[Rfam]
RNA sequence: UCCUAGCCCCGAUUGUAGCGGCAUACUUUUUUGCUUUUGAUGAAAUUUUCCUGUGGUACAGAAUUUUCUAAAGCAAAAAAGAUACAGCGGAAAGCGGGAAAUAGC
Numbered sequence: 001u002c003c004u005a006g007c008c009c010c011g012a013u014u015g016u017a018g019c020g021g022c023a024u025a026c027u028u029u030u031u032u033g034c035u036u037u038u039g040a041u042g043a044a045a046u047u048u049u050c051c052u053g054u055g056g057u058a059c060a061g062a063a064u065u066u067u068c069u070a071a072a073g074c075a076a077a078a079a080a081g082a083u084a085c086a087g088c089g090g091a092a093a094g095c096g097g098g099a100a101a102u103a104g105c
Stems, first nucleotide, its partner, number of pairs: 009097003013093002018088002023083002029078008
Shown here is a 105-nucleotide RNA sequence from Chryseobacterium sp. Leaf394, a member of the family "Flavo-1 RNA". A search with the family's covariance model found it, with a score of 67 bits. The family has 201 seed sequences and 7,497 matches in Rfam 15.1.